Record summary
The record is a 97-nucleotide RNA sequence from Trema andersonii, which matches "Small nucleolar RNA Z103" in Rfam. By type it is a C/D-box small nucleolar RNA.

[Rfam]
RNA sequence: AUGGAGUUGAUGAUUAUUUCCCCAGAUGAUCGACGCUGAUUAUACUGAGCGCCUUUAUUCUCUCUUUAGAGAGACCAAGCCAAUUUGUCUGAUCCAU
Numbered sequence: 001a002u003g004g005a006g007u008u009g010a011u012g013a014u015u016a017u018u019u020c021c022c023c024a025g026a027u028g029a030u031c032g033a034c035g036c037u038g039a040u041u042a043u044a045c046u047g048a049g050c051g052c053c054u055u056u057a058u059u060c061u062c063u064c065u066u067u068a069g070a071g072a073g074a075c076c077a078a079g080c081c082a083a084u085u086u087g088u089c090u091g092a093u094c095c096a097u
Stems, first nucleotide, its partner, number of pairs: 001097005
Overview: For this family Rfam cites "The high diversity of snoRNAs in plants: identification and comparative study of 120 snoRNA genes from Oryza sativa" (Chen et al., Nucleic Acids Res, 2003). NCBI's taxonomy places the organism under Eukaryota, Magnoliopsida, Mesangiospermae, fabids, Trema. The match comes from Rfam's covariance-model search (93 bits).